A member of the RNA family "FMN riboswitch aptamer (RFN element)" from Mammaliicoccus stepanovicii, 134 nucleotides long. Taxonomically the source falls in Mammaliicoccus (Bacteria, Bacillati, Bacillota, Staphylococcaceae). A search with the family's covariance model found it, with a score of 125 bits. From the family's description: The RFN element is a highly conserved domain that is found frequently in the 5'-untranslated regions of prokaryotic mRNAs that encode for flavin mononucleotide (FMN) biosynthesis and transport proteins. The literature on the family includes a 2002 paper in Nucleic Acids Res by Vitreschak et al., "Regulation of riboflavin biosynthesis and transport genes in bacteria by transcriptional and translational attenuation".

[Rfam]
RNA sequence: AUAUUCUUUCGGGGCAGGGUGAAAUUCCCAACCGGCGGUAAAUUAAGCCCGCGACCUGCAUGCGUUUUAUAGUAUGUGGCUGAUUCAGUGUAAAUCUGAAGCCGACAGUAUAGUCUGGAUGGGAGAAAGAAUAG
Numbered sequence: 001a002u003a004u005u006c007u008u009u010c011g012g013g014g015c016a017g018g019g020u021g022a023a024a025u026u027c028c029c030a031a032c033c034g035g036c037g038g039u040a041a042a043u044u045a046a047g048c049c050c051g052c053g054a055c056c057u058g059c060a061u062g063c064g065u066u067u068u069a070u071a072g073u074a075u076g077u078g079g080c081u082g083a084u085u086c087a088g089u090g091u092a093a094a095u096c097u098g099a100a101g102c103c104g105a106c107a108g109u110a111u112a113g114u115c116u117g118g119a120u121g122g123g124a125g126a127a128a129g130a131a132u133a134g
Stems, first nucleotide, its partner, number of pairs: 003132008017029003031114002033104002035052004047102002056079004084100005106117003